[Rfam]
Selenocysteine transfer RNA: an 86-nucleotide RNA from Ectocarpus sp. CCAP 1310/34. The base pairs follow the family's consensus structure, which is taken from published work. Its family is annotated with triplet codon-amino acid adaptor activity in the Gene Ontology.

RNA sequence: GCAAGGAUGACCUUCGCUGGGGCGGAGUGCGGACUUCAAAUCCGUAGGCGAUUAGCGUCGCAGCAGUUCGAUUCUGCCUUCCCUGC
Numbered sequence: 001g002c003a004a005g006g007a008u009g010a011c012c013u014u015c016g017c018u019g020g021g022g023c024g025g026a027g028u029g030c031g032g033a034c035u036u037c038a039a040a041u042c043c044g045u046a047g048g049c050g051a052u053u054a055g056c057g058u059c060g061c062a063g064c065a066g067u068u069c070g071a072u073u074c075u076g077c078c079u080u081c082c083c084u085g086c
Base pairs, nucleotide, nucleotide: 001086002085003084005082006081007080009078012027013026014025015024016023017022028046029045030044031043032042033041048061049060050059051058052057063077064076065075066074